The family of this 141-nucleotide RNA sequence is "Group II catalytic intron D1-D4-7". The literature on the family includes a 2003 paper in Crit Rev Biochem Mol Biol by Lehmann and Schmidt, "Group II introns: structure and catalytic versatility of large natural ribozymes".
RNA sequence: CCAUCCAUUCCGUUGGAUGAAGCCGUUGUCCCCGGCUCUGCCAGUAAUGGCACUGUUUCGGAAGCGGACAUAAACGUAACCCUACUUGGAAUCAAACCGGUUGAGGGGGGAGGGAUGAAACUGCGAGCUGCAAUGGCGGGU
Numbered sequence: 001c002c003a004u005c006c007a008u009u010c011c012g013u014u015g016g017a018u019g020a021a022g023c024c025g026u027u028g029u030c031c032c033c034g035g036c037u038c039u040g041c042c043a044g045u046a047a048u049g050g051c052a053c054u055g056u057u058u059c060g061g062a063a064g065c066g067g068a069c070a071u072a073a074a075c076g077u078a079a080c081c082c083u084a085c086u087u088g089g090a091a092u093c094a095a096a097c098c099g100g101u102u103g104a105g106g107g108g109g110g111a112g113g114g115a116u117g118a119a120a121c122u123g124c125g126a127g128c129u130g131c132a133a134u135g136g137c138g139g140g141u
Base pairs, nucleotide, nucleotide: 002019003018004017005016006015007014027070028069029068030067031066032061033060034059035056036055039052040051041050042049043048082089083088091116092115093114097110098109120134122132123131124130125129
Dot-bracket structure: .((((((......)))))).......((((((((((..(((((....)))))..))..)))....)))))...........((....)).(((...((..........))...)))...(.((((...)))).).......